A member of the RNA family "Streptomyces-metH RNA" from Streptomyces naganishii, 144 nucleotides long. The organism belongs to Streptomyces naganishii, within Bacteria. A search with the family's covariance model found it, with a score of 97 bits. It is annotated as a small RNA.
RNA sequence: UUCGUCCGCGUGGUGGACGCCCUGACCAUCCGGGGCCGGUCCCGGCUACCCUUGCGGCGUGCGCCCUCCUUGGGAAGCUCCCCGGGGCAUUCCCGGGAGGACGCAAAGCCGACAGCCGUCGCACCUCAAGGGAGCCCCUUCAUG
Numbered sequence: 001u002u003c004g005u006c007c008g009c010g011u012g013g014u015g016g017a018c019g020c021c022c023u024g025a026c027c028a029u030c031c032g033g034g035g036c037c038g039g040u041c042c043c044g045g046c047u048a049c050c051c052u053u054g055c056g057g058c059g060u061g062c063g064c065c066c067u068c069c070u071u072g073g074g075a076a077g078c079u080c081c082c083c084g085g086g087g088c089a090u091u092c093c094c095g096g097g098a099g100g101a102c103g104c105a106a107a108g109c110c111g112a113c114a115g116c117c118g119u120c121g122c123a124c125c126u127c128a129a130g131g132g133a134g135c136c137c138c139u140u141c142a143u144g
Base pairs, nucleotide, nucleotide: 060105061104062103063102065100066099067098068097069096070095108122109121111120112119113118